Rfam assigns this 99-nucleotide sequence from Marinilactibacillus sp. 15R to the family "NiCo (Nickel/Cobalt) riboswitch aptamer". The family's consensus secondary structure is taken from published work.

[Rfam]
RNA sequence: AUACGUUUUAAUGAACAAGCGGUAAGCUUUUUAAAAGUUUAUGCAGCCGGGCUACAGCAUGUAGCAGCAGCGUGUAAAAAGACACACUGUGAGACAGUU
Numbered sequence: 001a002u003a004c005g006u007u008u009u010a011a012u013g014a015a016c017a018a019g020c021g022g023u024a025a026g027c028u029u030u031u032u033a034a035a036a037g038u039u040u041a042u043g044c045a046g047c048c049g050g051g052c053u054a055c056a057g058c059a060u061g062u063a064g065c066a067g068c069a070g071c072g073u074g075u076a077a078a079a080a081g082a083c084a085c086a087c088u089g090u091g092a093g094a095c096a097g098u099u
Base pairs, nucleotide, nucleotide: 010098012096013095016093019047020046022042023041024040025039026038027037051065052064053063054062055061067090068089069088070087072085
Dot-bracket structure: .........(.((..(..((.((((((.........))))))...))...(((((.....))))).((((.(............).))))..).)).).